Shown here is a 107-nucleotide sequence from Arachis hypogaea, a member of the family "mir-393 microRNA precursor family". Taxonomically the source falls in Arachis (Eukaryota, Magnoliopsida, rosids, fabids). The match comes from Rfam's covariance-model search (100 bits). The base pairs follow the family's consensus structure. Its family is annotated with RISC complex and miRNA-mediated post-transcriptional gene silencing in the Gene Ontology.
RNA sequence: GGAGGAGGCAUCCAAAGGGAUCGCAUUGAUCCCAAAUCUCCCAUCUCUUCUUCUCUUUCUUAUCUUUUUUUGAUUUGGGAUCAUGCUAUCCCUUUGGAUUCCUCCUU
Numbered sequence: 001g002g003a004g005g006a007g008g009c010a011u012c013c014a015a016a017g018g019g020a021u022c023g024c025a026u027u028g029a030u031c032c033c034a035a036a037u038c039u040c041c042c043a044u045c046u047c048u049u050c051u052u053c054u055c056u057u058u059c060u061u062a063u064c065u066u067u068u069u070u071u072g073a074u075u076u077g078g079g080a081u082c083a084u085g086c087u088a089u090c091c092c093u094u095u096g097g098a099u100u101c102c103u104c105c106u107u
Base pairs, nucleotide, nucleotide: 002107003106004105005104006103008101010099011098012097013096014095015094016093017092018091019090020089021088023086024085025084026083028082029081030080031079032078036075